[Rfam]
RNA sequence: GGUGAUAAACUGCGGUGUAUAAUAGACGCAAUGGACCCGGGGGCAGUACCCGGCGGCUCCACCAAAAGGCCCGGUUCCCUAGCGAGAGGGGCGGGCUUCCUGAUGGGGCCGAACCAGGAUCGACAUGCGUUGAAAGGCAUCGUUUUUGCCCGGAAUGAGCACUCCGUAAAAAGCUUAUUUCACAAGUGCCAACGAUAACGAAGCACUCGCUCUCGCUGCGUAA
Numbered sequence: 001g002g003u004g005a006u007a008a009a010c011u012g013c014g015g016u017g018u019a020u021a022a023u024a025g026a027c028g029c030a031a032u033g034g035a036c037c038c039g040g041g042g043g044c045a046g047u048a049c050c051c052g053g054c055g056g057c058u059c060c061a062c063c064a065a066a067a068g069g070c071c072c073g074g075u076u077c078c079c080u081a082g083c084g085a086g087a088g089g090g091g092c093g094g095g096c097u098u099c100c101u102g103a104u105g106g107g108g109c110c111g112a113a114c115c116a117g118g119a120u121c122g123a124c125a126u127g128c129g130u131u132g133a134a135a136g137g138c139a140u141c142g143u144u145u146u147u148g149c150c151c152g153g154a155a156u157g158a159g160c161a162c163u164c165c166g167u168a169a170a171a172a173g174c175u176u177a178u179u180u181c182a183c184a185a186g187u188g189c190c191a192a193c194g195a196u197a198a199c200g201a202a203g204c205a206c207u208c209g210c211u212c213u214c215g216c217u218g219c220g221u222a223a
Stems, first nucleotide, its partner, number of pairs: 001150005015140004027129003031126003037053005054111007151166004
RNA: permuted transfer-messenger RNA
Organism: Citromicrobium sp. RCC1897